[Rfam]
RNA sequence: UGCCUUUUUGUGUUGCCCAUUCAUUGCUUUUUGAACAGAUGAAUGUGGUGUCAAAAAAGGCAUACAUUGACUCUUGUGUUGACCUUAACAAGAUGCUGCCUGUGCUACCUUGUGUUAAGUUGACAGCAAGUACAGUG
Numbered sequence: 001u002g003c004c005u006u007u008u009u010g011u012g013u014u015g016c017c018c019a020u021u022c023a024u025u026g027c028u029u030u031u032u033g034a035a036c037a038g039a040u041g042a043a044u045g046u047g048g049u050g051u052c053a054a055a056a057a058a059g060g061c062a063u064a065c066a067u068u069g070a071c072u073c074u075u076g077u078g079u080u081g082a083c084c085u086u087a088a089c090a091a092g093a094u095g096c097u098g099c100c101u102g103u104g105c106u107a108c109c110u111u112g113u114g115u116u117a118a119g120u121u122g123a124c125a126g127c128a129a130g131u132a133c134a135g136u137g
Stems, first nucleotide, its partner, number of pairs: 002061006011053002014050004018045008073130004077125006084119006091111001094107002
Dot-bracket structure: .((((((...((.((((((((((((............)))))))).)))).))..))))))...........((((((((((.((((((.(..((..........))...)..)))))))))))).)))).......

The family of this 137-nucleotide sequence from Lepisosteus oculatus is "Small nucleolar RNA SNORA13". The family has 50 seed sequences and 1,034 matches in Rfam 15.1. Rfam classes the family as an H/ACA-box small nucleolar RNA. Rfam's curators write: ACA13 is a member of the H/ACA class of snoRNA that guide the sites of modification of uridines to pseudouridines.